[Rfam]
RNA: MAT2A 3'UTR stem loop A
Organism: Piaya cayana
RNA sequence: GCUUUUCUCCCUUCCCGCGAGCGUAGGCUACAGAGAAGCUCGCGGGCUCUUGGGGGAAGAGC
Numbered sequence: 001g002c003u004u005u006u007c008u009c010c011c012u013u014c015c016c017g018c019g020a021g022c023g024u025a026g027g028c029u030a031c032a033g034a035g036a037a038g039c040u041c042g043c044g045g046g047c048u049c050u051u052g053g054g055g056g057a058a059g060a061g062c
Base pairs, nucleotide, nucleotide: 001062002061003060004059007056008055009054010053016044017043020040021039022038023031024030
Dot-bracket structure: ((((..((((.....((..(((((.....))......)))..))........))))..))))